RNA sequence: GCGAUGAGCUAAUUUGAGUAAGACGAGAGAUAUGCGCAAGCUAAACGCGCGGAUGUGGCCGCCCGGUCUCUCGCCUCAAACGCAUCAAGACGUCUGCUGCGGCAGGCGUC
Dot-bracket structure: .............(((((.....((((((((..((....))....((.(((........))).)))))))))).))))).........(((((((((....)))))))))